[Rfam]
RNA sequence: CCUGUUGAAAUAUGCACGGGUAUAGCCUUGUAUUGCUUGUUGAAGAGGUAUAGUACGGAUAGGUCCUGCAGAGACACAUGUCUACGGGGAGCUUUCCAACUCAGAAUUUUUCAACUGCUGAAUACAAGAAAUAGCUGUGGUAUGUAAGAUACUUCAGCGAAACCUGAACAAAGGAGACCGGAGUUAAGGUCCCAAAGUGUUUGCUAAGUGUAUCAAACAGGGUUUUUAUCCUGAGACAGUGGGGAUGUAGGUCUAGAAGCCGCCAUCAUUUAAAGAAAGCGUAACAGCUCACCCAUUGAGGAUAAGAGCAUGGAAGAUGGACGGGGCUAAAGCAAACCACCGAUACUCUGGGGGCACUCUGUAUAGAGUGUGCCGGUAAACAGGCGUUCUAUUUGCACAGAAGUUUUUUCGUAAGAAAGGAUGGAGCAGAUAGUAUUGAAAAU
Numbered sequence: 001c002c003u004g005u006u007g008a009a010a011u012a013u014g015c016a017c018g019g020g021u022a023u024a025g026c027c028u029u030g031u032a033u034u035g036c037u038u039g040u041u042g043a044a045g046a047g048g049u050a051u052a053g054u055a056c057g058g059a060u061a062g063g064u065c066c067u068g069c070a071g072a073g074a075c076a077c078a079u080g081u082c083u084a085c086g087g088g089g090a091g092c093u094u095u096c097c098a099a100c101u102c103a104g105a106a107u108u109u110u111u112c113a114a115c116u117g118c119u120g121a122a123u124a125c126a127a128g129a130a131a132u133a134g135c136u137g138u139g140g141u142a143u144g145u146a147a148g149a150u151a152c153u154u155c156a157g158c159g160a161a162a163c164c165u166g167a168a169c170a171a172a173g174g175a176g177a178c179c180g181g182a183g184u185u186a187a188g189g190u191c192c193c194a195a196a197g198u199g200u201u202u203g204c205u206a207a208g209u210g211u212a213u214c215a216a217a218c219a220g221g222g223u224u225u226u227u228a229u230c231c232u233g234a235g236a237c238a239g240u241g242g243g244g245a246u247g248u249a250g251g252u253c254u255a256g257a258a259g260c261c262g263c264c265a266u267c268a269u270u271u272a273a274a275g276a277a278a279g280c281g282u283a284a285c286a287g288c289u290c291a292c293c294c295a296u297u298g299a300g301g302a303u304a305a306g307a308g309c310a311u312g313g314a315a316g317a318u319g320g321a322c323g324g325g326g327c328u329a330a331a332g333c334a335a336a337c338c339a340c341c342g343a344u345a346c347u348c349u350g351g352g353g354g355c356a357c358u359c360u361g362u363a364u365a366g367a368g369u370g371u372g373c374c375g376g377u378a379a380a381c382a383g384g385c386g387u388u389c390u391a392u393u394u395g396c397a398c399a400g401a402a403g404u405u406u407u408u409u410c411g412u413a414a415g416a417a418a419g420g421a422u423g424g425a426g427c428a429g430a431u432a433g434u435a436u437u438g439a440a441a442a443u
Stems, first nucleotide, its partner, number of pairs: 001384006011024005027128006035118002039115008051103001052101002058096002061093002064090004071085001072083004134158004139153004163174003178351007188341003197338001199337006218312002222309010239296005245269003250264003270274001275290001279288002352374002355370005385438001387435001389433008403422008

Overview: The record is a 443-nucleotide part of an RNA from Candidatus Psychracetigena formicireducens, which matches "Archaeal large subunit ribosomal RNA" in Rfam. The source organism's lineage runs through Bacteria, Bacillati, Candidatus Lithacetigenota and Candidatus Psychracetigena.